This 200-nucleotide sequence from Octodon degus belongs to the Rfam family "Small nucleolar RNA SNORA73 family". The literature on the family includes a 1996 paper in RNA by Enright et al., "5'ETS rRNA processing facilitated by four small RNAs: U14, E3, U17, and U3". Gene Ontology terms of the family: nucleolus and RNA processing. The match comes from Rfam's covariance-model search (96 bits). Pairs were carried over by alignment from the consensus structure, which is taken from published work.

[Rfam]
RNA sequence: UGAAUAUGGAUACCUUGGCAGGCUACUCUCCACGGGUCCUAAGUAGUUUAAGGGGAGCACACGGAUCUCCCCAAUGAUGUAGAGUCCCUUCCUACAACACUGGAGCAGAAGUUGGCCUUUGAUCUGCACCUGCAUAUUCCUCCAGCUUCUCAGUGUCCUUCAGGAAAUGAUUGAGGAGACAAACCAUGCAGGAAACAGCU
Numbered sequence: 001u002g003a004a005u006a007u008g009g010a011u012a013c014c015u016u017g018g019c020a021g022g023c024u025a026c027u028c029u030c031c032a033c034g035g036g037u038c039c040u041a042a043g044u045a046g047u048u049u050a051a052g053g054g055g056a057g058c059a060c061a062c063g064g065a066u067c068u069c070c071c072c073a074a075u076g077a078u079g080u081a082g083a084g085u086c087c088c089u090u091c092c093u094a095c096a097a098c099a100c101u102g103g104a105g106c107a108g109a110a111g112u113u114g115g116c117c118u119u120u121g122a123u124c125u126g127c128a129c130c131u132g133c134a135u136a137u138u139c140c141u142c143c144a145g146c147u148u149c150u151c152a153g154u155g156u157c158c159u160u161c162a163g164g165a166a167a168u169g170a171u172u173g174a175g176g177a178g179a180c181a182a183a184c185c186a187u188g189c190a191g192g193a194a195a196c197a198g199c200u
Stems, first nucleotide, its partner, number of pairs: 001103001003101001005099001007097001008040002014035002018029001020027002043095004053088004059080003129192007146178006156164002
Annotation:
The organism belongs to Octodon, within Eukaryota.